[Rfam]
RNA sequence: GAUCCCGGAGGUCCACAUCCGACAGCGCGAUGCGCCCUCGGGUGCUGUAUCG
Numbered sequence: 001g002a003u004c005c006c007g008g009a010g011g012u013c014c015a016c017a018u019c020c021g022a023c024a025g026c027g028c029g030a031u032g033c034g035c036c037c038u039c040g041g042g043u044g045c046u047g048u049a050u051c052g
Base pairs, nucleotide, nucleotide: 016044017043018042019041020040021039022038025035026034027033028032